[Rfam]
Shown here is a 205-nucleotide sequence from Panthera tigris, a member of the family "Small nucleolar RNA SNORA73 family". Gene Ontology terms of the family: nucleolus and RNA processing. A search with the family's covariance model found it, with a score of 145 bits. Rfam's curators write: U17 (SNORA73A and SNORA73B) also known as E1 belongs to the H/ACA class of small nucleolar RNAs (snoRNAs). Its Rfam clan is "snR30-U17 clan".

RNA sequence: CCCACGUGGGUACUCCCAGGAGGUCACUCUCCCUGGGCUCUGUCCAGGUGGCCUAGCCGAGCACAGGGCUUUGCCCCAUGACAUAUAGUCCCUUUCCGCGAUGCUGGAAAUGAAGCCAGGCCUUGAGUCUGCGCCUGCAUAUUCCUGCAGCUUCUCAGAGUUCUGUGGACGAUGACUGAGGGGACAAACCAUGCAGGAAACCGCU
Number, nucleotide and partner (000 for none) at each position: 001c107002c106003c000004a000005c103006g102007u101008g045009g044010g043011u042012a041013c000014u000015c037016c036017c035018a000019g030020g029021a028022g027023g000024u000025c000026a000027c022028u021029c020030u019031c000032c000033c000034u000035g017036g016037g015038c000039u000040c000041u012042g011043u010044c009045c008046a000047g000048g099049u098050g097051g096052c000053c000054u000055a000056g000057c000058c000059g090060a089061g086062c000063a084064c000065a000066g079067g000068g000069c000070u000071u000072u000073g000074c000075c000076c000077c000078a000079u066080g000081a000082c000083a000084u063085a000086u061087a000088g000089u060090c059091c000092c000093u000094u000095u000096c051097c050098g049099c048100g000101a007102u006103g005104c000105u000106g002107g001108a000109a000110a000111u000112g000113a000114a000115g000116c000117c000118a000119g000120g000121c000122c000123u000124u000125g000126a000127g000128u000129c000130u000131g000132c000133g000134c197135c196136u195137g194138c193139a192140u191141a000142u000143u000144c000145c000146u000147g000148c000149a000150g000151c183152u182153u181154c180155u179156c178157a000158g000159a000160g170161u169162u168163c167164u000165g000166u000167g163168g162169a161170c160171g000172a000173u000174g000175a000176c000177u000178g156179a155180g154181g153182g152183g151184a000185c000186a000187a000188a000189c000190c000191a140192u139193g138194c137195a136196g135197g134198a000199a000200a000201c000202c000203g000204c000205u000